The record is a 268-nucleotide RNA from Aspergillus puulaauensis, which matches "Fungal signal recognition particle RNA" in Rfam. The organism belongs to Aspergillus, within Eukaryota. Clan: SRP clan.
RNA sequence: UAUCUGUCAUGGAUAGUCGAGUGGGAGGUUAGCCGUUAGUCAGUGACCUUGCUAAGGUCUUGGCCAGCGUCAACUGGUGCCCAGUACGAAUCCUGGGGUUGUCGAUUGUACUCGUGCGAGUAAUCCACGAACGCUACACGGCAUUAAGCAAUGGAAGUGACCCUUGAGGGAAGCAAUUCUGCAGAGACACUUCCACCCUGGGGUGGCGUCAUUGGAUUACACCGUUGCGUUACAGGGAAUCUGGCUGUUUGGCUGAACGACUAUUUUU
Numbered sequence: 001u002a003u004c005u006g007u008c009a010u011g012g013a014u015a016g017u018c019g020a021g022u023g024g025g026a027g028g029u030u031a032g033c034c035g036u037u038a039g040u041c042a043g044u045g046a047c048c049u050u051g052c053u054a055a056g057g058u059c060u061u062g063g064c065c066a067g068c069g070u071c072a073a074c075u076g077g078u079g080c081c082c083a084g085u086a087c088g089a090a091u092c093c094u095g096g097g098g099u100u101g102u103c104g105a106u107u108g109u110a111c112u113c114g115u116g117c118g119a120g121u122a123a124u125c126c127a128c129g130a131a132c133g134c135u136a137c138a139c140g141g142c143a144u145u146a147a148g149c150a151a152u153g154g155a156a157g158u159g160a161c162c163c164u165u166g167a168g169g170g171a172a173g174c175a176a177u178u179c180u181g182c183a184g185a186g187a188c189a190c191u192u193c194c195a196c197c198c199u200g201g202g203g204u205g206g207c208g209u210c211a212u213u214g215g216a217u218u219a220c221a222c223c224g225u226u227g228c229g230u231u232a233c234a235g236g237g238a239a240u241c242u243g244g245c246u247g248u249u250u251g252g253c254u255g256a257a258c259g260a261c262u263a264u265u266u267u268u
Stems, first nucleotide, its partner, number of pairs: 001015004019266006027258001029256002032253003035249001037247007047237001048235001049066001051064005068229002071227004076223004081215005086209003090204009100143001103141001107138004112130005118125002144148001152195007163186003170179003